[Rfam]
RNA: ASpks TB sRNA
RNA sequence: CUUGAUCGAGCCCAGCCACAGCGGCCGGUCCGGAUCGCGGUCUCGGCCGUACCCGGCGAGGAGCGCCUGUGCCUC
Numbered sequence: 001c002u003u004g005a006u007c008g009a010g011c012c013c014a015g016c017c018a019c020a021g022c023g024g025c026c027g028g029u030c031c032g033g034a035u036c037g038c039g040g041u042c043u044c045g046g047c048c049g050u051a052c053c054c055g056g057c058g059a060g061g062a063g064c065g066c067c068u069g070u071g072c073c074u075c
Stems, first nucleotide, its partner, number of pairs: 015025003031071002038065002043060001047056003
Dot-bracket structure: ..............(((.....))).....((.....((...(...(((....)))...)...))....))....